[Rfam]
The family of this 114-nucleotide RNA sequence from Lolliginicoccus lacisalsi is "SAM (S-adenosyl methionine) riboswitch aptamer".
The organism belongs to Lolliginicoccus, within Bacteria.
SAM-IV is a mRNA element that regulates gene expression via direct sensing of S-adenosylmethionine (SAM or AdoMet).
RNA sequence: CUUCACGAGAUGCAGCCGCCAAGCCCCGACUGGGUUGCAGGCCAACCCCAUGCUCAUGGGUGGCUCGGGUGAGGAAGCGGCCUCGCGUCGACCGGCGCGCGGCAGGAGCUGGCC
Numbered sequence: 001c002u003u004c005a006c007g008a009g010a011u012g013c014a015g016c017c018g019c020c021a022a023g024c025c026c027c028g029a030c031u032g033g034g035u036u037g038c039a040g041g042c043c044a045a046c047c048c049c050a051u052g053c054u055c056a057u058g059g060g061u062g063g064c065u066c067g068g069g070u071g072a073g074g075a076a077g078c079g080g081c082c083u084c085g086c087g088u089c090g091a092c093c094g095g096c097g098c099g100c101g102g103c104a105g106g107a108g109c110u111g112g113c114c
Stems, first nucleotide, its partner, number of pairs: 001077004012038006022031002041064003046060003050057002080103003084099006